[Rfam]
RNA sequence: GUUUCCGUCCCCUUGCGGGGAAGUGGUAAUGAAUCAU
Numbered sequence: 001g002u003u004u005c006c007g008u009c010c011c012c013u014u015g016c017g018g019g020g021a022a023g024u025g026g027u028a029a030u031g032a033a034u035c036a037u
Stems, first nucleotide, its partner, number of pairs: 005026002008021005
Dot-bracket structure: ....((.(((((....)))))...))...........
RNA: CRISPR RNA direct repeat element
Organism: Pseudanabaenaceae cyanobacterium LEGE 13415